Record summary: DUF3800-VI RNA: a 52-nucleotide RNA sequence from Pacificispira spongiicola.
[Rfam]
RNA sequence: CGGUUGAGAGGACUGCCUUCGCAGUUCGCCGAGACAGGUUCUCGCUCGGCCG
Numbered sequence: 001c002g003g004u005u006g007a008g009a010g011g012a013c014u015g016c017c018u019u020c021g022c023a024g025u026u027c028g029c030c031g032a033g034a035c036a037g038g039u040u041c042u043c044g045c046u047c048g049g050c051c052g
Stems, first nucleotide, its partner, number of pairs: 001052008010027007030044005